[Rfam]
RNA sequence: CAUGUACAAGGGCAAACCUGCCGAAAGGCAGGGACGCAAAGCUACGAGUCUAAAGCCGUUUUGGCCAUGACAGUCGGGCUGCCAUA
Dot-bracket structure: ...........((...((((((....))))))...))..((((.((((((....((((...))))...)))..)))))))......
Record summary
c-di-GMP-I riboswitch aptamer: an 86-nucleotide RNA from Thermoclostridium caenicola. The family's consensus secondary structure is taken from published work. A search with the family's covariance model found it, with a score of 85 bits.